[Rfam]
RNA sequence: AGCAGAGUAGAAUUUUGUGCGUUAAGUGCCAAGUGAACAGGGAGUUGUCAUUUGGACGAAAAGUGAAAACUUGCGGUACGAAGUUCGCAUCCCGCUGCU
Numbered sequence: 001a002g003c004a005g006a007g008u009a010g011a012a013u014u015u016u017g018u019g020c021g022u023u024a025a026g027u028g029c030c031a032a033g034u035g036a037a038c039a040g041g042g043a044g045u046u047g048u049c050a051u052u053u054g055g056a057c058g059a060a061a062a063g064u065g066a067a068a069a070c071u072u073g074c075g076g077u078a079c080g081a082a083g084u085u086c087g088c089a090u091c092c093c094g095c096u097g098c099u
Stems, first nucleotide, its partner, number of pairs: 001099005010086010020075003026057002029055008040092003044088001061072004